The record is a 91-nucleotide RNA from Allocoprococcus comes, which matches "c-di-GMP-I riboswitch aptamer" in Rfam.

RNA sequence: UUAUUUUAAAGGCAAACCUGUUGAAAGGCAGGAGCGCAAAGCCAGAAGGGACUAAAGUCAGAAAGCUUGACCAUGUCAGCCGGUUGCCACU
Numbered sequence: 001u002u003a004u005u006u007u008a009a010a011g012g013c014a015a016a017c018c019u020g021u022u023g024a025a026a027g028g029c030a031g032g033a034g035c036g037c038a039a040a041g042c043c044a045g046a047a048g049g050g051a052c053u054a055a056a057g058u059c060a061g062a063a064a065g066c067u068u069g070a071c072c073a074u075g076u077c078a079g080c081c082g083g084u085u086g087c088c089a090c091u
Stems, first nucleotide, its partner, number of pairs: 012037002017032006040085004048081002050077003057071004
Dot-bracket structure: ...........((...((((((....))))))...))..((((....(((((....((((.......))))...)))..))))))......
A search with the family's covariance model found it, with a score of 71 bits.
The family's consensus secondary structure is taken from published work.